[Rfam]
RNA sequence: CGGCCGAACUUUGGGGAGUAGCCGUUUCCUGCCCGCAGGAAAAUCUGCAUCAACACAUUUGGCCCGCAGGCCAUGGUGCAGAUGGUCGCAAGACUUGGCGAGACCAUGGAUCGAAUUGCGACCGGAUGUGGCCGGGGUCGCCGUUUGAUCCCUGGUAUUCGUCAUCCCGGCCC
Number, nucleotide and partner (000 for none) at each position: 001c000002g000003g000004c000005c000006g000007a000008a000009c000010u000011u000012u000013g000014g000015g000016g000017a000018g000019u000020a000021g000022c000023c000024g000025u000026u041027u040028c039029c000030u000031g000032c000033c000034c000035g000036c000037a000038g000039g028040a027041a026042a000043a083044u082045c081046u080047g079048c078049a077050u076051c075052a074053a000054c000055a000056c000057a000058u000059u000060u073061g072062g071063c070064c069065c000066g000067c000068a000069g064070g063071c062072c061073a060074u052075g051076g050077u049078g048079c047080a046081g045082a044083u043084g000085g000086u000087c000088g000089c000090a000091a000092g000093a000094c000095u000096u000097g000098g000099c000100g000101a000102g000103a000104c000105c000106a000107u000108g000109g000110a000111u000112c000113g000114a000115a000116u000117u000118g000119c000120g000121a000122c000123c000124g000125g000126a000127u000128g000129u000130g000131g000132c000133c000134g000135g000136g000137g000138u000139c000140g000141c000142c000143g000144u000145u000146u000147g000148a000149u000150c000151c000152c000153u000154g000155g000156u000157a000158u000159u000160c000161g000162u000163c000164a000165u000166c000167c000168c000169g000170g000171c000172c000173c000

Rfam assigns this 173-nucleotide RNA sequence from Oxalicibacterium flavum to the family "Manganese Mn2+ riboswitch aptamer (yybP-ykoY)". The organism belongs to Oxalicibacterium, within Bacteria. For this family Rfam cites "Mn(2+)-sensing mechanisms of yybP-ykoY orphan riboswitches" (Price et al., Mol Cell, 2015). About the family: This RNA was originally discovered in E. coli during a large scale screen and was named SraF. The family was later found to exist upstream of related families of protein genes in many bacteria, including the the yybP and ykoK genes in B. subtilis. It scores 63 bits against the family's covariance model.